[Rfam]
RNA sequence: GACUAACUGGGCGAUGGAGUCCGCCUUCCCCAACCGCCGAACGCGUCGGCUGAUGACUCCUUUUCGAGA
Numbered sequence: 001g002a003c004u005a006a007c008u009g010g011g012c013g014a015u016g017g018a019g020u021c022c023g024c025c026u027u028c029c030c031c032a033a034c035c036g037c038c039g040a041a042c043g044c045g046u047c048g049g050c051u052g053a054u055g056a057c058u059c060c061u062u063u064u065c066g067a068g069a
Stems, first nucleotide, its partner, number of pairs: 010025004016060006036050004
RNA: Fluoride riboswitch aptamer (crcB RNA motif)